The family of this 59-nucleotide RNA from Nanchangia anserum is "Actino-pnp RNA". NCBI's taxonomy places the organism under Bacteria, Bacillati, Actinomycetales, Actinomycetaceae, Nanchangia. Pairs were carried over by alignment from the consensus structure, which is taken from published work.
[Rfam]
RNA sequence: GCCGGUCCUCGGUAGUGGCCUACGGAGCCCCGUUCCGUGCGCCUCGAUCGAUGACCGUU
Number, nucleotide and partner (000 for none) at each position: 001g059002c000003c057004g056005g055006u054007c053008c000009u051010c050011g049012g048013u047014a000015g000016u000017g043018g042019c041020c000021u039022a038023c037024g036025g035026a034027g033028c032029c000030c000031c000032g028033u027034u026035c025036c024037g023038u022039g021040c000041g019042c018043c017044u000045c000046g000047a013048u012049c011050g010051a009052u000053g007054a006055c005056c004057g003058u000059u001